[Rfam]
RNA sequence: GAAGUUCUUCGGGGUUGGGUGCAAUUCCCUACCGGUGGUGAUGCCAUAGUGCGAGUCCACGACCCGGUGCAUAACCGGCUGAUUUGGUGCGAAUCCAAAACCGACAGUAAAGUCUGGAUGAAAGAAGAAAUGA
Numbered sequence: 001g002a003a004g005u006u007c008u009u010c011g012g013g014g015u016u017g018g019g020u021g022c023a024a025u026u027c028c029c030u031a032c033c034g035g036u037g038g039u040g041a042u043g044c045c046a047u048a049g050u051g052c053g054a055g056u057c058c059a060c061g062a063c064c065c066g067g068u069g070c071a072u073a074a075c076c077g078g079c080u081g082a083u084u085u086g087g088u089g090c091g092a093a094u095c096c097a098a099a100a101c102c103g104a105c106a107g108u109a110a111a112g113u114c115u116g117g118a119u120g121a122a123a124g125a126a127g128a129a130a131u132g133a
Base pairs, nucleotide, nucleotide: 003131005129006128007127008126009125010124017029018028019027031113032112033103034102035060036059037058038057055101056100064078065077083099084098085097086096087095105116106115107114
The record is a 133-nucleotide sequence from Firmicutes bacterium CAG:194, which matches "FMN riboswitch aptamer (RFN element)" in Rfam. Taxonomically the source falls in Bacillota (Bacteria, Bacillati). It scores 116 bits against the family's covariance model.